RNA sequence: CUGCUUUAGCUGGCUGAAUCCGGGCCAAAUUGUUAUUCAUAGAGCAGCAUUUGGUCCCCUUCAACCAGCUGUAGUUG
Numbered sequence: 001c002u003g004c005u006u007u008a009g010c011u012g013g014c015u016g017a018a019u020c021c022g023g024g025c026c027a028a029a030u031u032g033u034u035a036u037u038c039a040u041a042g043a044g045c046a047g048c049a050u051u052u053g054g055u056c057c058c059c060u061u062c063a064a065c066c067a068g069c070u071g072u073a074g075u076u077g
Stems, first nucleotide, its partner, number of pairs: 003075003008070006015063004022056002025054006
RNA: mir-133 microRNA precursor family
Organism: Daphnia pulex